[Rfam]
RNA: Small nucleolar RNA snoR26
Organism: Amborella trichopoda
RNA sequence: AGAGCAUCAAUGAUUAUUUCCCUUUUGUUAUCCUUGCAUUUUGAUAUAUCCCUGAUGAAAUCUUAUGGGGGAAGAAAAGAUCUGAGAUUCUU
Numbered sequence: 001a002g003a004g005c006a007u008c009a010a011u012g013a014u015u016a017u018u019u020c021c022c023u024u025u026u027g028u029u030a031u032c033c034u035u036g037c038a039u040u041u042u043g044a045u046a047u048a049u050c051c052c053u054g055a056u057g058a059a060a061u062c063u064u065a066u067g068g069g070g071g072a073a074g075a076a077a078a079g080a081u082c083u084g085a086g087a088u089u090c091u092u
Stems, first nucleotide, its partner, number of pairs: 002092003006088003